[Rfam]
RNA sequence: CCAAAGGCUCUUUUCAGAGCCAUCUACACUUUCAGAGAGGAGCUGU
Numbered sequence: 001c002c003a004a005a006g007g008c009u010c011u012u013u014u015c016a017g018a019g020c021c022a023u024c025u026a027c028a029c030u031u032u033c034a035g036a037g038a039g040g041a042g043c044u045g046u
Stems, first nucleotide, its partner, number of pairs: 006021006
Rfam assigns this 46-nucleotide RNA sequence from Odobenus rosmarus to the family "Histone 3' UTR stem-loop".
The match comes from Rfam's covariance-model search (42 bits).
Taxonomically the source falls in Odobenus rosmarus (Eukaryota, Eumetazoa, Craniata, Dipnotetrapodomorpha).
The family's consensus secondary structure is taken from published work.
The mRNAs of metazoan histone genes lack a poly-A tail. 3' end processing occurs at a site between a highly conserved stem-loop (modelled by this family) and a purine rich region around 20 nts downstream (the histone downstream element, or HDE). The stem-loop is bound by a 31 kDa stem-loop binding protein (SLBP - also termed the histone hairpin binding protein, or HBP). Together with U7 snRNA binding of the HDE, SLBP binding nucleate s the formation of the processing complex. The histone 3' UTR stem-loop is also involved in nucleocytoplasmic transport of the mRNA, and in stability regulation and translation efficiency in the cytoplasm.